A member of the RNA family "SAM (S-adenosyl methionine) riboswitch aptamer" from Psychromicrobium silvestre, 112 nucleotides long. The family has 40 seed sequences and 2,360 matches in Rfam 15.1. Its family is annotated with S-adenosylmethionine metabolic process and regulation of gene expression in the Gene Ontology. Rfam describes the family as follows. SAM-IV is a mRNA element that regulates gene expression via direct sensing of S-adenosylmethionine (SAM or AdoMet). SAM-IV riboswitches share conserved nucleotide positions with the previously described SAM-I riboswitches sequence analysis and molecular recognition experiments suggest that SAM-I and SAM-IV riboswitches share similar ligand binding sites, but have different scaffolds. NCBI's taxonomy places the organism under Bacteria, Bacillati, Actinomycetota, Micrococcaceae, Psychromicrobium.

[Rfam]
RNA sequence: GGUCACGAGUGCCAGCGCUAAACCCCGGUUUGCUGGCCGGCAACCCUCCUUUCGCGGUGGGGUGCCCCGGGUGACGACCUGGCCACAUCAAAAGGUGUGGCAAGCGCGGAUU
Numbered sequence: 001g002g003u004c005a006c007g008a009g010u011g012c013c014a015g016c017g018c019u020a021a022a023c024c025c026c027g028g029u030u031u032g033c034u035g036g037c038c039g040g041c042a043a044c045c046c047u048c049c050u051u052u053c054g055c056g057g058u059g060g061g062g063u064g065c066c067c068c069g070g071g072u073g074a075c076g077a078c079c080u081g082g083c084c085a086c087a088u089c090a091a092a093a094g095g096u097g098u099g100g101c102a103a104g105c106g107c108g109g110a111u112u
Stems, first nucleotide, its partner, number of pairs: 001079004009038001011037006021030002039066003044062003048057002082101008